[Rfam]
RNA sequence: GACGGGUGUUAAAAGUGCUGUUUGUGCAGGUAGCUGUUUUCAUCUCUACUGUAGAAGCAGCACUUCACGACACACGCC
Numbered sequence: 001g002a003c004g005g006g007u008g009u010u011a012a013a014a015g016u017g018c019u020g021u022u023u024g025u026g027c028a029g030g031u032a033g034c035u036g037u038u039u040u041c042a043u044c045u046c047u048a049c050u051g052u053a054g055a056a057g058c059a060g061c062a063c064u065u066c067a068c069g070a071c072a073c074a075c076g077c078c
Stems, first nucleotide, its partner, number of pairs: 004075001006073002009070002013065011025053003029050005